[Rfam]
RNA sequence: AUCGACGAAAGGAGGUGAUCCACGAGAUGAAGAACGAGUGGACUCUCGAGGUGGUCGCCGGCUGACACCGGCACACCAGGUCGCCGGCACGGGGCGACCACCGGGGCCCGUGAGGGUGCGGUCGUCCGCCGCACGCGCUAGCACCUCACGGGCCCUACUCAU
Number, nucleotide and partner (000 for none) at each position: 001a000002u000003c000004g000005a000006c000007g000008a000009a000010a000011g000012g000013a000014g059015g058016u057017g056018a055019u054020c000021c000022a000023c000024g000025a000026g000027a000028u000029g000030a000031a000032g000033a000034a000035c000036g000037a000038g000039u000040g000041g000042a000043c000044u000045c000046u000047c000048g000049a000050g000051g000052u000053g000054g019055u018056c017057g016058c015059c014060g085061g084062c083063u000064g082065a081066c080067a000068c079069c000070g077071g000072c000073a000074c000075a000076c000077c070078a000079g068080g066081u065082c064083g062084c061085c060086g000087g000088c000089a000090c000091g000092g000093g000094g000095c000096g000097a000098c000099c000100a000101c000102c000103g156104g155105g154106g153107c152108c151109c150110g149111u148112g147113a146114g145115g144116g134117u133118g132119c131120g130121g129122u000123c000124g000125u000126c000127c000128g000129c121130c120131g119132c118133a117134c116135g000136c000137g000138c000139u000140a000141g000142c000143a000144c115145c114146u113147c112148a111149c110150g109151g108152g107153c106154c105155c104156u103157a000158c000159u000160c000161a000162u000
The family of this 162-nucleotide RNA sequence from Sanguibacter sp. HDW7 is "Actinobacteria sRNA Ms_IGR-5".